[Rfam]
RNA sequence: GAUUAAGGAACUCAGACUAAGAUUGUCACAUCCUGUGACAACGUCUGAGUGACCCACCUCGUGUGGG
Numbered sequence: 001g002a003u004u005a006a007g008g009a010a011c012u013c014a015g016a017c018u019a020a021g022a023u024u025g026u027c028a029c030a031u032c033c034u035g036u037g038a039c040a041a042c043g044u045c046u047g048a049g050u051g052a053c054c055c056a057c058c059u060c061g062u063g064u065g066g067g
Stems, first nucleotide, its partner, number of pairs: 011049007025039005053067005
This 67-nucleotide RNA from Bacillus sp. HNG belongs to the Rfam family "Bacillaceae-1 RNA".
By type it is a small RNA.